The family of this 116-nucleotide RNA sequence from Treponema parvum is "TD-1 RNA".
The family has 28 seed sequences and 147 matches in Rfam 15.1.
RNA sequence: GUUAAACGACGAGUUUCGGAUAAAGCCGAAACGUCGCUGAUUAUAGCUGUGCGCAAAGAGCGCUCUAAUUCAACAGUCUCCAAAAUUGAUAUUUUGCUCGACUGUUGAAUUUUAAG
Numbered sequence: 001g002u003u004a005a006a007c008g009a010c011g012a013g014u015u016u017c018g019g020a021u022a023a024a025g026c027c028g029a030a031a032c033g034u035c036g037c038u039g040a041u042u043a044u045a046g047c048u049g050u051g052c053g054c055a056a057a058g059a060g061c062g063c064u065c066u067a068a069u070u071c072a073a074c075a076g077u078c079u080c081c082a083a084a085a086u087u088g089a090u091a092u093u094u095u096g097c098u099c100g101a102c103u104g105u106u107g108a109a110u111u112u113u114a115a116g
Stems, first nucleotide, its partner, number of pairs: 011035002013032007051063004068110011081096006
It is annotated as a cis-regulatory element. The literature on the family includes a 2007 paper in Nucleic Acids Res by Weinberg et al., "Identification of 22 candidate structured RNAs in bacteria using the CMfinder comparative genomics pipeline". Pairs were carried over by alignment from the consensus structure, which is taken from published work.